[Rfam]
Nucleotides: 081
Base pairs, nucleotide, nucleotide: 008073009072010071011070012069013068014067015066017064018063019062020061022059024057025056026055027054028053029052032049033048034047035046
Number, partner (000 for none) and nucleotide at each position: 001000a002000g003000g004000c005000c006000c007000a008073g009072a010071g011070a012069g013068a014067g015066a016000a017064g018063c019062a020061g021000g022059g023000u024057c025056u026055g027054a028053u029052c030000c031000a032049u033048a034047g035046c036000c037000u038000c039000c040000g041000u042000g043000g044000c045000a046035g047034c048033u049032g050000c051000u052029g053028a054027u055026c056025a057024g058000c059022c060000c061020u062019u063018g064017c065000c066015u067014c068013u069012c070011u071010c072009u073008c074000u075000c076000u077000c078000a079000c080000c081000a